[Rfam]
RNA sequence: GGAUGUUCUGAAGACCUGCUCGCUAGGCCACGCACGGAGGACGCCUGUUCCUCACGGGCCAUGCGCCCGCCUAGGGGAAAGUCCCCGGACCGCCGGCAGAGAGUGCCGGGCGCUGCCGCGCCCCAGCCCGCCGCCGCUUCACGCCAACCUCCGCUGAGACGCCCACGGGCCGAGCGGGUGAGGGCGGGGUGGGCAUUCGUCACGGCCACAGACACGCAGGUAGCGCGGCAAGCGCGCCAACAGAACGGGGCUCACUCUCAGGCCAUC
Numbered sequence: 001g002g003a004u005g006u007u008c009u010g011a012a013g014a015c016c017u018g019c020u021c022g023c024u025a026g027g028c029c030a031c032g033c034a035c036g037g038a039g040g041a042c043g044c045c046u047g048u049u050c051c052u053c054a055c056g057g058g059c060c061a062u063g064c065g066c067c068c069g070c071c072u073a074g075g076g077g078a079a080a081g082u083c084c085c086c087g088g089a090c091c092g093c094c095g096g097c098a099g100a101g102a103g104u105g106c107c108g109g110g111c112g113c114u115g116c117c118g119c120g121c122c123c124c125a126g127c128c129c130g131c132c133g134c135c136g137c138u139u140c141a142c143g144c145c146a147a148c149c150u151c152c153g154c155u156g157a158g159a160c161g162c163c164c165a166c167g168g169g170c171c172g173a174g175c176g177g178g179u180g181a182g183g184g185c186g187g188g189g190u191g192g193g194c195a196u197u198c199g200u201c202a203c204g205g206c207c208a209c210a211g212a213c214a215c216g217c218a219g220g221u222a223g224c225g226c227g228g229c230a231a232g233c234g235c236g237c238c239a240a241c242a243g244a245a246c247g248g249g250g251c252u253c254a255c256u257c258u259c260a261g262g263c264c265a266u267c
Stems, first nucleotide, its partner, number of pairs: 002267004007262005014221006023074006037053005080252002083250004095107004108123006127192001131189002134187004139183002142180001151177004161170003223237005

Rfam assigns this 267-nucleotide sequence from Atrichornis clamosus to the family "RNase MRP". From the family's description: RNase MRP is an enzymatically active ribonucleoprotein with two distinct roles in eukaryotes. In mitochondria it plays a direct role in the initiation of mitochondrial DNA replication. In the nucleus it is involved in precursor rRNA processing, where it cleaves the internal transcribed spacer 1 between 18S and 5.8S rRNAs. Despite distinct functions, RNase MRP has been shown to be evolutionarily related to RNase P. Like eukaryotic RNase P, RNase MRP is not catalytically active without associated protein subunits. NCBI's taxonomy places the organism under Eukaryota, Vertebrata, Sarcopterygii, Tetrapoda, Atrichornis.